Rfam assigns this 46-nucleotide RNA sequence from Nasonia vitripennis to the family "Histone 3' UTR stem-loop". A reference for the family is Williams and Marzluff (1995), "The sequence of the stem and flanking sequences at the 3' end of histone mRNA are critical determinants for the binding of the stem-loop binding protein", Nucleic Acids Res. Rfam classes the family as a cis-regulatory element.
Nucleotides: 046
Base pairs, nucleotide, nucleotide: 006021007020008019009018010017011016
Number, partner (000 for none) and nucleotide at each position: 001000c002000a003000a004000u005000c006021g007020g008019c009018c010017c011016u012000u013000u014000u015000c016011a017010g018009g019008g020007c021006c022000a023000c024000c025000a026000a027000c028000a029000a030000a031000u032000u033000a034000a035000c036000g037000u038000a039000a040000a041000g042000a043000a044000a045000c046000u